[Rfam]
RNA: Guanidine-II riboswitch aptamer (mini-ykkC)
Organism: Ixodes scapularis
RNA sequence: CCUAGAGGACGACCUCUAGGACGACCUCAUGAAUGACCUUGAGGACGACCUCG
Numbered sequence: 001c002c003u004a005g006a007g008g009a010c011g012a013c014c015u016c017u018a019g020g021a022c023g024a025c026c027u028c029a030u031g032a033a034u035g036a037c038c039u040u041g042a043g044g045a046c047g048a049c050c051u052c053g
Base pairs, nucleotide, nucleotide: 001020002019003018004017005016006015007014008013040053041052042051043050044049